[Rfam]
RNA: Ruegeria cis2 sRNA
Organism: Celeribacter marinus
RNA sequence: GGUGAACUAUAGUGAGGAUUGUAGUUCACAAAGGUGUAUCCGCGGGCUUGGUCGAUUGUGUGAAAUAACGGAUUCCAUUUGAAAAACGCCAGCAUGAACCCCGGCAUUGCGUUUGCAAGAAACAUCUUGCCGGAUGUGAACAUAUUUGCCCGA
Numbered sequence: 001g002g003u004g005a006a007c008u009a010u011a012g013u014g015a016g017g018a019u020u021g022u023a024g025u026u027c028a029c030a031a032a033g034g035u036g037u038a039u040c041c042g043c044g045g046g047c048u049u050g051g052u053c054g055a056u057u058g059u060g061u062g063a064a065a066u067a068a069c070g071g072a073u074u075c076c077a078u079u080u081g082a083a084a085a086a087c088g089c090c091a092g093c094a095u096g097a098a099c100c101c102c103g104g105c106a107u108u109g110c111g112u113u114u115g116c117a118a119g120a121a122a123c124a125u126c127u128u129g130c131c132g133g134a135u136g137u138g139a140a141c142a143u144a145u146u147u148g149c150c151c152g153a
Base pairs, nucleotide, nucleotide: 002037003036004035007033008032010031012029013028014027015026016025040058042056043054044053045052069152070151073083074082075081088149089148091146092145094143095142096141100136102133104131105129106128109125112121113120114119